RNA: flg-Rhizobiales RNA
RNA sequence: CCUAGCGACGGCUUGGGAGAGCCGCCGCGACGGGAUGCCGGAGCGCCGCUUGGGAGAGCGUCGCCCCGGAUGACGGGGAGAGGACCGAUGGCGAACGCAGCUCUCGUCGGGCUGUCGUCGCAGAUGGCGUUGA
Dot-bracket structure: (.(.(((.((((((....)))))).))).).).....(((......(((((....)))))......)))...............(((((.(.((.......)).)))))).......................